Nucleotides: 085
Base pairs, nucleotide, nucleotide: 014073015072016071017070018069020067021066022065025061026060027059028058031056032055033054035052036051
Number, partner (000 for none) and nucleotide at each position: 001000a002000g003000g004000c005000g006000a007000g008000u009000g010000c011000g012000a013000u014073g015072a016071a017070g018069a019000g020067a021066g022065c023000u024000a025061u026060c027059c028058a029000u030000c031056g032055a033054c034000a035052g036051u037000a038000u039000g040000g041000u042000a043000a044000u045000u046000g047000u048000a049000a050000c051036a052035c053000u054033g055032u056031c057000a058028u059027g060026g061025a062000g063000u064000u065022g066021c067020u068000c069018u070017c071016u072015u073014u074000g075000u076000u077000g078000a079000u080000g081000c082000c083000g084000c085000c